This 38-nucleotide sequence from Centaurea solstitialis belongs to the Rfam family "Plastid psbT antisense RNA".
The family has 93 seed sequences and 1,866 matches in Rfam 15.1.
Pairs were carried over by alignment from the consensus structure, which was predicted with LocARNA.
RNA sequence: GCUGUUGGAUCUCCAAGUUUCUGGAAUGCUCCAAAUUC
Number, nucleotide and partner (000 for none) at each position: 001g000002c000003u000004g000005u016006u015007g014008g013009a000010u000011c000012u000013c008014c007015a006016a005017g000018u000019u000020u035021c000022u033023g032024g031025a030026a000027u000028g000029c000030u025031c024032c023033a022034a000035a020036u000037u000038c000
Plastid-psbT-asRNA is an antisense RNA (asRNA) motif reported in Plastids It has been shown that psbT expression is controlled by two antisense RNAs originated from psbN transcription by the nuclear-encoded polymerase (NEP), in which the short antisense RNA hybridizes to psbT CDS, thereby stabilizing psbT transcript while blocking its translation during photooxidative stress. The organism belongs to Centaurea, within Eukaryota.